[Rfam]
RNA sequence: UAAAUGGUGGAAAUCCAUUCUGAAAAGAUUAAGUCAAAUCAUUCAGUAGCGAGUCAUUGAAAUAAAUAGGUAACUAUUUAUUUUAAGCGUUGACAGUUAGGUAGUAGGCUUGAAUGUGAAUGAGCCUCGUAAUAAGU
Numbered sequence: 001u002a003a004a005u006g007g008u009g010g011a012a013a014u015c016c017a018u019u020c021u022g023a024a025a026a027g028a029u030u031a032a033g034u035c036a037a038a039u040c041a042u043u044c045a046g047u048a049g050c051g052a053g054u055c056a057u058u059g060a061a062a063u064a065a066a067u068a069g070g071u072a073a074c075u076a077u078u079u080a081u082u083u084u085a086a087g088c089g090u091u092g093a094c095a096g097u098u099a100g101g102u103a104g105u106a107g108g109c110u111u112g113a114a115u116g117u118g119a120a121u122g123a124g125c126c127u128c129g130u131a132a133u134a135a136g137u
Stems, first nucleotide, its partner, number of pairs: 020046005054093003058089001059084006068075002097113006116130003
RNA: Group II catalytic intron D1-D4-4